Shown here is a 225-nucleotide RNA sequence from Lachnospiraceae bacterium CAG:364, a member of the family "Streptococcus sRNA SpF66". It scores 44 bits against the family's covariance model. On this family, see Mann et al., PLoS Pathog 2012: "Control of virulence by small RNAs in Streptococcus pneumoniae". Lineage of the source: Bacteria > Bacillota > Clostridia > Lachnospirales > Lachnospiraceae. The family's RNA type in Rfam is small RNA.

[Rfam]
RNA sequence: GUUACCGCCUCCUAUACCGGUACAGAAGGGAGGUGCUCACUAUGGAUUUAGUAUUAUCUUUUAUUGUCGCUGUUGCGGCUGGUGUAGUUUGCCACUACAUCAUCAAAUGGUUAGAUGGCGACAAAUAGCCGGUAACUAGCCUGUGGAUAUAAGCCUUUCCACACCAAAAUUAGGAAUAGAAAACCCCUCGGAAUGCAGUCCGAGGGGUUUUCAUUGCUGUUCACU
Numbered sequence: 001g002u003u004a005c006c007g008c009c010u011c012c013u014a015u016a017c018c019g020g021u022a023c024a025g026a027a028g029g030g031a032g033g034u035g036c037u038c039a040c041u042a043u044g045g046a047u048u049u050a051g052u053a054u055u056a057u058c059u060u061u062u063a064u065u066g067u068c069g070c071u072g073u074u075g076c077g078g079c080u081g082g083u084g085u086a087g088u089u090u091g092c093c094a095c096u097a098c099a100u101c102a103u104c105a106a107a108u109g110g111u112u113a114g115a116u117g118g119c120g121a122c123a124a125a126u127a128g129c130c131g132g133u134a135a136c137u138a139g140c141c142u143g144u145g146g147a148u149a150u151a152a153g154c155c156u157u158u159c160c161a162c163a164c165c166a167a168a169a170u171u172a173g174g175a176a177u178a179g180a181a182a183a184c185c186c187c188u189c190g191g192a193a194u195g196c197a198g199u200c201c202g203a204g205g206g207g208u209u210u211u212c213a214u215u216g217c218u219g220u221u222c223a224c225u
Stems, first nucleotide, its partner, number of pairs: 005030002009028002012025002016021001032165004045055003069154002071149004078101001080099002084095002109141006116134002122131001168221002171219002175215003181210012